RNA sequence: GUUCUGACGUGCAAAUCGAUCGUCAAAUUUGGGUAUAGGGGCGAAAGACUAAUCGAACCAUUAAGGACACUACUAGGUGGUUGAGAGACGCUUAGAGCGCGAAUCUAGUCCCGGGUCAGGGGCGACACUUUCAAAUUGUUCGGGGACGUCCACACACUGCUACGCUACCGCAGCUGCGCCGAAAGGCCAGCGCGCACCGGGUUAACGACCCUGGGGAUGGUAACAACGCGUAGCGGGGAUAAUCCGCAGCCAAGCCCUACGGGCCCUCCGGGGCCUACGGGUGCAGUUCACAGACUAAAUGUUGGUGGGUUCCGCACAAGGUGCGGGGCUUAAGGUAUAGUCGAUCCACCGGGCGACCGGGGC
Numbered sequence: 001g002u003u004c005u006g007a008c009g010u011g012c013a014a015a016u017c018g019a020u021c022g023u024c025a026a027a028u029u030u031g032g033g034u035a036u037a038g039g040g041g042c043g044a045a046a047g048a049c050u051a052a053u054c055g056a057a058c059c060a061u062u063a064a065g066g067a068c069a070c071u072a073c074u075a076g077g078u079g080g081u082u083g084a085g086a087g088a089c090g091c092u093u094a095g096a097g098c099g100c101g102a103a104u105c106u107a108g109u110c111c112c113g114g115g116u117c118a119g120g121g122g123c124g125a126c127a128c129u130u131u132c133a134a135a136u137u138g139u140u141c142g143g144g145g146a147c148g149u150c151c152a153c154a155c156a157c158u159g160c161u162a163c164g165c166u167a168c169c170g171c172a173g174c175u176g177c178g179c180c181g182a183a184a185g186g187c188c189a190g191c192g193c194g195c196a197c198c199g200g201g202u203u204a205a206c207g208a209c210c211c212u213g214g215g216g217a218u219g220g221u222a223a224c225a226a227c228g229c230g231u232a233g234c235g236g237g238g239a240u241a242a243u244c245c246g247c248a249g250c251c252a253a254g255c256c257c258u259a260c261g262g263g264c265c266c267u268c269c270g271g272g273g274c275c276u277a278c279g280g281g282u283g284c285a286g287u288u289c290a291c292a293g294a295c296u297a298a299a300u301g302u303u304g305g306u307g308g309g310u311u312c313c314g315c316a317c318a319a320g321g322u323g324c325g326g327g328g329c330u331u332a333a334g335g336u337a338u339a340g341u342c343g344a345u346c347c348a349c350c351g352g353g354c355g356a357c358c359g360g361g362g363c
Stems, first nucleotide, its partner, number of pairs: 126307004132301002137248002141246004149239003153235001249287002254282004262275005291343001293342005309329009349360004
The family of this 363-nucleotide RNA sequence from Cudoniella acicularis is "Group I catalytic intron".
Its family is annotated with Group I intron splicing in the Gene Ontology.